The record is an 84-nucleotide sequence from Hibiscus syriacus, which matches "Plastid-psbM 3UTR RNA" in Rfam.
The source organism's lineage runs through Eukaryota, Streptophytina, Tracheophyta, Malvales and Hibiscus.
The match comes from Rfam's covariance-model search (60 bits).
By type it is a cis-regulatory element.
Plastid psbM is a non-coding RNA (ncRNA) recognised in plastids. It was found in the three prime untranslated region (3UTR) of psbM gene, its 3UTR location suggests a role in transcript maturation.
RNA sequence: AACUCAAUACUAUAGUAGAAAGAUUCAUAUUUUUUUUCUACCAUACUAUCUAUAUCUAUUAUUGGAAUGUAUAAAGAUACAAGC
Numbered sequence: 001a002a003c004u005c006a007a008u009a010c011u012a013u014a015g016u017a018g019a020a021a022g023a024u025u026c027a028u029a030u031u032u033u034u035u036u037u038c039u040a041c042c043a044u045a046c047u048a049u050c051u052a053u054a055u056c057u058a059u060u061a062u063u064g065g066a067a068u069g070u071a072u073a074a075a076g077a078u079a080c081a082a083g084c
Stems, first nucleotide, its partner, number of pairs: 007049003011045003015041009